The record is a 105-nucleotide RNA sequence from Mytilus edulis, which matches "mir-16 microRNA precursor family" in Rfam.
Rfam links the family to the GO terms RISC complex and miRNA-mediated post-transcriptional gene silencing.
The match comes from Rfam's covariance-model search (44 bits).
Clan: mir-15 clan.

RNA sequence: ACGUUCUGUCAAUAGCAUGAAAAUAUUGGCAAUGGGAUAUUAUAUUAUAUAUAUGGACACUAUUUUCUUCCCAUUGCCAAUAUUUUCAUGCUAUUGACAGAACGU
Numbered sequence: 001a002c003g004u005u006c007u008g009u010c011a012a013u014a015g016c017a018u019g020a021a022a023a024u025a026u027u028g029g030c031a032a033u034g035g036g037a038u039a040u041u042a043u044a045u046u047a048u049a050u051a052u053a054u055g056g057a058c059a060c061u062a063u064u065u066u067c068u069u070c071c072c073a074u075u076g077c078c079a080a081u082a083u084u085u086u087c088a089u090g091c092u093a094u095u096g097a098c099a100g101a102a103c104g105u
Stems, first nucleotide, its partner, number of pairs: 001105003005101003011095008020085001022084016